[Rfam]
RNA: Actino-pnp RNA
Organism: Nocardia bovistercoris
RNA sequence: GUCGGUCUUCGGUAGUGGCCCCUCGGUGCACCGACGGGCUUCGAUCGAUGACCGCC
Numbered sequence: 001g002u003c004g005g006u007c008u009u010c011g012g013u014a015g016u017g018g019c020c021c022c023u024c025g026g027u028g029c030a031c032c033g034a035c036g037g038g039c040u041u042c043g044a045u046c047g048a049u050g051a052c053c054g055c056c
Stems, first nucleotide, its partner, number of pairs: 001056001003054005009048005017040003021036001023034004